[Rfam]
RNA: XIST 3' intron conserved motif
Nucleotides: 068
Base pairs, nucleotide, nucleotide: 001068003066004065005064006063007062008061009060010059011058012057022055023054024053025052026051027050
Number, partner (000 for none) and nucleotide at each position: 001068u002000u003066g004065a005064c006063c007062c008061u009060u010059u011058c012057c013000a014000u015000u016000u017000u018000u019000c020000u021000u022055u023054c024053a025052c026051u027050c028000a029000c030000a031000g032000a033000g034000g035000g036000u037000g038000g039000g040000a041000c042000a043000g044000g045000a046000g047000g048000c049000c050027g051026a052025g053024u054023g055022a056000a057012g058011g059010a060009a061008a062007g063006g064005g065004u066003c067000c068001a